permuted transfer-messenger RNA: a 217-nucleotide RNA from Acetobacter pomorum. By type it is a non-coding RNA gene. Bacterial tmRNA, also known as 10Sa RNA or SsrA, is named for its dual tRNA and mRNA-like properties. Its role is to liberate the mRNA from a stalled ribosome.
[Rfam]
RNA sequence: GGCAAUAAACGGGGUAUGGAAUAGGCGUAGUGGACCCGGGGGCGGUACCCGGCGUCUCCACCAAUCAUUCAGCCUGUAAAGGUUUGGACAGAUGGGGACGAAAUAGGCUCGACACGCGCAGUAAAGAUAUUCUUUUUGCCCGGUAUUGUACCACCGUUAUCGGGCUAUUUUUACAAGUGCCAAUGAUAACACUGAGGUGCUCGCUGUCGCUGCAUAA
Numbered sequence: 001g002g003c004a005a006u007a008a009a010c011g012g013g014g015u016a017u018g019g020a021a022u023a024g025g026c027g028u029a030g031u032g033g034a035c036c037c038g039g040g041g042g043c044g045g046u047a048c049c050c051g052g053c054g055u056c057u058c059c060a061c062c063a064a065u066c067a068u069u070c071a072g073c074c075u076g077u078a079a080a081g082g083u084u085u086g087g088a089c090a091g092a093u094g095g096g097g098a099c100g101a102a103a104u105a106g107g108c109u110c111g112a113c114a115c116g117c118g119c120a121g122u123a124a125a126g127a128u129a130u131u132c133u134u135u136u137u138g139c140c141c142g143g144u145a146u147u148g149u150a151c152c153a154c155c156g157u158u159a160u161c162g163g164g165c166u167a168u169u170u171u172u173a174c175a176a177g178u179g180c181c182a183a184u185g186a187u188a189a190c191a192c193u194g195a196g197g198u199g200c201u202c203g204c205u206g207u208c209g210c211u212g213c214a215u216a217a
Stems, first nucleotide, its partner, number of pairs: 001140005014130004026118003030115003036052005053100007141156004